A member of the RNA family "Z6 small nucleolar RNA" from Setophaga kirtlandii, 86 nucleotides long. On this family, see Galardi et al., Mol Cell Biol 2002: "Purified box C/D snoRNPs are able to reproduce site-specific 2'-O-methylation of target RNA in vitro". Rfam links the family to the GO terms nucleolus and RNA processing. The family's RNA type in Rfam is C/D-box small nucleolar RNA. It scores 37 bits against the family's covariance model.

RNA sequence: UGCUGGUGGCAGCCCCCAGAGCUGACAUCUCCUUUGGCACAGGGCUCCCUGGAGCCAGGGGAGACGCUGCCACUGAAGCUCAAGUG
Numbered sequence: 001u002g003c004u005g006g007u008g009g010c011a012g013c014c015c016c017c018a019g020a021g022c023u024g025a026c027a028u029c030u031c032c033u034u035u036g037g038c039a040c041a042g043g044g045c046u047c048c049c050u051g052g053a054g055c056c057a058g059g060g061g062a063g064a065c066g067c068u069g070c071c072a073c074u075g076a077a078g079c080u081c082a083a084g085u086g
Stems, first nucleotide, its partner, number of pairs: 001086004